[Rfam]
RNA: MIR1120/MIR1122 microRNA precursor family
Organism: Triticum aestivum
RNA sequence: AUAAUCCCUCCAUCCCAUAAUAUAAGAACAUUUUUCAAGCUAACAUAGCUUGAAAAACGUUUUUAUAUUUUGGGACGGAGGGGGUAG
Numbered sequence: 001a002u003a004a005u006c007c008c009u010c011c012a013u014c015c016c017a018u019a020a021u022a023u024a025a026g027a028a029c030a031u032u033u034u035u036c037a038a039g040c041u042a043a044c045a046u047a048g049c050u051u052g053a054a055a056a057a058c059g060u061u062u063u064u065a066u067a068u069u070u071u072g073g074g075a076c077g078g079a080g081g082g083g084g085u086a087g
Base pairs, nucleotide, nucleotide: 003085005083007081008080009079010078011077013075014074015073016072017071019069020068021067022066023065024064025063026062027061028060029059031057032056033055034054035053036052037051038050039049040048041047